Source information
A member of the RNA family "SAM riboswitch aptamer (S box leader)" from Anaerospora hongkongensis, 103 nucleotides long. NCBI's taxonomy places the organism under Bacteria, Bacillati, Bacillota, Sporomusaceae, Anaerospora. A search with the family's covariance model found it, with a score of 92 bits.
RNA sequence: CUCUUAUCUAGAGUGGUCGAGGGACUGGCCCGAUGACACCCAGCAACCGGCAGCAAUGCAGUGGUGCUAAUUCCAGCAGGAUUUUUAUCCUGAGAGAUGAGAG
Numbered sequence: 001c002u003c004u005u006a007u008c009u010a011g012a013g014u015g016g017u018c019g020a021g022g023g024a025c026u027g028g029c030c031c032g033a034u035g036a037c038a039c040c041c042a043g044c045a046a047c048c049g050g051c052a053g054c055a056a057u058g059c060a061g062u063g064g065u066g067c068u069a070a071u072u073c074c075a076g077c078a079g080g081a082u083u084u085u086u087a088u089c090c091u092g093a094g095a096g097a098u099g100a101g102a103g
Stems, first nucleotide, its partner, number of pairs: 001103008013041001015040003021031003025076004042068004047064002050059003072095001077092006
Dot-bracket structure: ((((((((....(.(((...(((.[[[[)))......))))((((.((.(((....)))...))))))...(]]]]((((((....))))))..)))))))))